[Rfam]
RNA sequence: AAGCCAGCUUAGCCCAGCAGUUCUAUUGACCAACACAUUGGUUGGAUCUCCCGAUCGUUUCCAGCAGUUUGAGACCCAUGGGCACUGCCUGGCUUUUUU
Number, nucleotide and partner (000 for none) at each position: 001a000002a094003g093004c092005c091006a090007g089008c000009u000010u000011a000012g083013c082014c081015c080016a000017g079018c000019a000020g076021u000022u000023c000024u000025a000026u072027u071028g070029a069030c000031c000032a000033a000034c000035a000036c000037a000038u000039u000040g000041g000042u000043u000044g000045g000046a000047u000048c000049u000050c000051c000052c000053g000054a000055u000056c000057g000058u000059u000060u000061c000062c000063a000064g000065c000066a000067g000068u000069u029070u028071g027072a026073g000074a000075c000076c020077c000078a000079u017080g015081g014082g013083c012084a000085c000086u000087g000088c000089c007090u006091g005092g004093c003094u002095u000096u000097u000098u000099u000
The family of this 99-nucleotide RNA from Podarcis muralis is "Vault RNA".
Rfam classes the family as a non-coding RNA gene.